[Rfam]
RNA sequence: GCCCUGUGGUUGCUGGACGCUGCUCUGUCCGUGCAGUGCUUCAGUGGGAUGCAAAGGGCCGACAGUGACACUGUGAUUAACGCAGGGAGCCUGUGAUCCGUGAGCAGCUUCCACAGCCCGGUCACAGUCACAUCC
Number, nucleotide and partner (000 for none) at each position: 001g060002c000003c058004c057005u000006g000007u051008g050009g000010u047011u046012g045013c044014u043015g042016g041017a040018c000019g037020c036021u035022g034023c033024u000025c000026u000027g000028u000029c000030c000031g000032u000033g023034c022035a021036g020037u019038g000039c000040u017041u016042c015043a014044g013045u012046g011047g010048g000049a000050u008051g007052c000053a000054a000055a000056g000057g004058g003059c000060c001061g000062a000063c000064a000065g000066u000067g000068a000069c000070a000071c127072u000073g125074u124075g123076a122077u121078u120079a000080a000081c000082g117083c116084a000085g000086g112087g111088a000089g109090c000091c107092u106093g105094u104095g000096a000097u000098c000099c000100g000101u000102g000103a000104g094105c093106a092107g091108c000109u089110u000111c087112c086113a000114c000115a000116g083117c082118c000119c000120g078121g077122u076123c075124a074125c073126a000127g071128u000129c000130a000131c000132a000133u000134c000135c000
RNA: Small nucleolar RNA SNORA84
Organism: Pitta sordida